[Rfam]
About this RNA: Shown here is a 99-nucleotide RNA from Oceanirhabdus seepicola, a member of the family "Purine riboswitch aptamer".
RNA sequence: AAAAAUACAAUAUAUUCUCAUCAUAUAAUCCUCGAAUAAGGCGGGGAAGUUUCUACCGAGUACCGCAAAUUCUCGACUAUGAGUGAGUAGGUUUAAGAA
Numbered sequence: 001a002a003a004a005a006u007a008c009a010a011u012a013u014a015u016u017c018u019c020a021u022c023a024u025a026u027a028a029u030c031c032u033c034g035a036a037u038a039a040g041g042c043g044g045g046g047a048a049g050u051u052u053c054u055a056c057c058g059a060g061u062a063c064c065g066c067a068a069a070u071u072c073u074c075g076a077c078u079a080u081g082a083g084u085g086a087g088u089a090g091g092u093u094u095a096a097g098a099a
Base pairs, nucleotide, nucleotide: 018085021082022081023080024079025078029047030046031045032044033043034042057075058074059073060072062070